Description:
This 69-nucleotide sequence from Acinetobacter qingfengensis belongs to the Rfam family "Fluoride riboswitch aptamer (crcB RNA motif)". Its family is annotated with response to fluoride and positive regulation of gene expression in the Gene Ontology. A search with the family's covariance model found it, with a score of 46 bits. The organism belongs to Acinetobacter, within Bacteria.
Nucleotides: 069
Base pairs, nucleotide, nucleotide: 010026011025012024013023016060017059018058019057020056038050039049040048041047
Number, partner (000 for none) and nucleotide at each position: 001000g002000a003000u004000c005000c006000a007000u008000c009000g010026g011025g012024a013023a014000a015000u016060g017059g018058c019057a020056u021000a022000c023013u024012u025011c026010c027000c028000u029000a030000u031000a032000c033000a034000a035000a036000c037000c038050g039049c040048c041047a042000a043000u044000u045000g046000u047041u048040g049039g050038c051000u052000a053000a054000u055000g056020a057019u058018g059017c060016c061000u062000a063000c064000g065000u066000a067000a068000c069000c